[Rfam]
RNA sequence: UGGUAGAUGCACCCUAAACACUAGUCCCUGGCUUCCCGCCGGGGAUUUUUUGU
Dot-bracket structure: .(((......)))...........((((((((.....))))))))........
Source information
This 53-nucleotide RNA from Elainella sp. C42_A2020_010 belongs to the Rfam family "Nitrogen stress-induced RNA 1". It is annotated as a small RNA. The pairing is the family consensus, mapped onto this sequence. The source organism's lineage runs through Bacteria, Bacillati, Cyanophyceae, Oculatellaceae and Elainella.